The family of this 69-nucleotide RNA sequence from Stegodyphus mimosarum is "mir-1175 microRNA precursor family". Its family is annotated with RISC complex and miRNA-mediated post-transcriptional gene silencing in the Gene Ontology. NCBI's taxonomy places the organism under Eukaryota, Opisthokonta, Ecdysozoa, Eresidae, Stegodyphus. The family has 11 seed sequences and 181 matches in Rfam 15.1.

RNA sequence: GGAAGGAGGUGGAGAAGUGGUGUCUGCACUUCAAACGCAAGUGAGAUUCACUUCCUCCAACUUAUUUCC
Numbered sequence: 001g002g003a004a005g006g007a008g009g010u011g012g013a014g015a016a017g018u019g020g021u022g023u024c025u026g027c028a029c030u031u032c033a034a035a036c037g038c039a040a041g042u043g044a045g046a047u048u049c050a051c052u053u054c055c056u057c058c059a060a061c062u063u064a065u066u067u068c069c
Stems, first nucleotide, its partner, number of pairs: 007063003010059005017053001023046002027043005